A member of the RNA family "tRNA" from Chlamydomonas reinhardtii, 87 nucleotides long. Taxonomically the source falls in Chlamydomonas (Eukaryota, Viridiplantae, Chlorophyta, Chlamydomonadaceae). The family's RNA type in Rfam is transfer RNA. A search with the family's covariance model found it, with a score of 55 bits.
RNA sequence: GCUUCUAUAGCUUAGUGGUAGAGCGUUCCCUUCGUAUGCGUCAUACGUGCAAGGGAAAGGUCCCGAGUUCAAUCCUCGGUGGGAGCA
Numbered sequence: 001g002c003u004u005c006u007a008u009a010g011c012u013u014a015g016u017g018g019u020a021g022a023g024c025g026u027u028c029c030c031u032u033c034g035u036a037u038g039c040g041u042c043a044u045a046c047g048u049g050c051a052a053g054g055g056a057a058a059g060g061u062c063c064c065g066a067g068u069u070c071a072a073u074c075c076u077c078g079g080u081g082g083g084a085g086c087a
Stems, first nucleotide, its partner, number of pairs: 001086007010024004026057007063079005